About this RNA:
Rfam assigns this 281-nucleotide sequence from Ziziphus jujuba to the family "Group I catalytic intron". The match comes from Rfam's covariance-model search (122 bits). The family has 12 seed sequences and 5,602 matches in Rfam 15.1. From the family's description: Group I catalytic introns are large self-splicing ribozymes. They catalyse their own excision from mRNA, tRNA and rRNA precursors in a wide range of organisms. The core secondary structure consists of 9 paired regions (P1-P9). These fold to essentially two domains - the P4-P6 domain (formed from the stacking of P5, P4, P6 and P6a helices) and the P3-P9 domain (formed from the P8, P3, P7 and P9 helices). A reference for the family is Cate et al. (1996), "Crystal structure of a group I ribozyme domain: principles of RNA packing", Science.

RNA sequence: CUACGAACUUAAUUGGAUUGAGCCUUGGUAUGGAAACCUACCAAGUUAUAACUUUCAAAUUCAGAGAAACCUUGGAAUUAUAAAUGGGCAAUCCUGAGCCAAAUCCUAUUUUAUGAAAACAAACAAGGAUUCAGAAAGUGAUAAUAAAAAAGGAUAGGUACAGAGACUCAAUGGAAGCUAUUCUAACAAAUGGAGUUGGCUGCGAUGCAUUAGUAAAGGAAUCCUUCUAUCGAAAGUCUAGAAAGGAUGAAGAAUAAACCUAUAUAUACGUAUACGUAUAG
Numbered sequence: 001c002u003a004c005g006a007a008c009u010u011a012a013u014u015g016g017a018u019u020g021a022g023c024c025u026u027g028g029u030a031u032g033g034a035a036a037c038c039u040a041c042c043a044a045g046u047u048a049u050a051a052c053u054u055u056c057a058a059a060u061u062c063a064g065a066g067a068a069a070c071c072u073u074g075g076a077a078u079u080a081u082a083a084a085u086g087g088g089c090a091a092u093c094c095u096g097a098g099c100c101a102a103a104u105c106c107u108a109u110u111u112u113a114u115g116a117a118a119a120c121a122a123a124c125a126a127g128g129a130u131u132c133a134g135a136a137a138g139u140g141a142u143a144a145u146a147a148a149a150a151a152g153g154a155u156a157g158g159u160a161c162a163g164a165g166a167c168u169c170a171a172u173g174g175a176a177g178c179u180a181u182u183c184u185a186a187c188a189a190a191u192g193g194a195g196u197u198g199g200c201u202g203c204g205a206u207g208c209a210u211u212a213g214u215a216a217a218g219g220a221a222u223c224c225u226u227c228u229a230u231c232g233a234a235a236g237u238c239u240a241g242a243a244a245g246g247a248u249g250a251a252g253a254a255u256a257a258a259c260c261u262a263u264a265u266a267u268a269c270g271u272a273u274a275c276g277u278a279u280a281g
Stems, first nucleotide, its partner, number of pairs: 005024001008022006050179001052177003056173002061097004066092001070088003098159002104153002111147004163260001165259001168256001181247004187241001189239001266279005